The family of this 82-nucleotide RNA from Oryza brachyantha is "Small nucleolar RNA U61". Pairs were carried over by alignment from the consensus structure, which was predicted with WAR. Rfam links the family to the GO terms RNA processing and nucleolus. It scores 73 bits against the family's covariance model. The family's RNA type in Rfam is C/D-box small nucleolar RNA. The source organism's lineage runs through Eukaryota, Streptophyta, Streptophytina, Petrosaviidae and Oryza.
[Rfam]
RNA sequence: GGGCGAUGAGGAAAGAAAACCGUGUGCCGGAGGCGGAUGCGCCGGUGUCGGUGACACAAAUCCUCUAAGAAGUUCUGAGCUC
Numbered sequence: 001g002g003g004c005g006a007u008g009a010g011g012a013a014a015g016a017a018a019a020c021c022g023u024g025u026g027c028c029g030g031a032g033g034c035g036g037a038u039g040c041g042c043c044g045g046u047g048u049c050g051g052u053g054a055c056a057c058a059a060a061u062c063c064u065c066u067a068a069g070a071a072g073u074u075c076u077g078a079g080c081u082c
Stems, first nucleotide, its partner, number of pairs: 001082004
Dot-bracket structure: ((((..........................................................................))))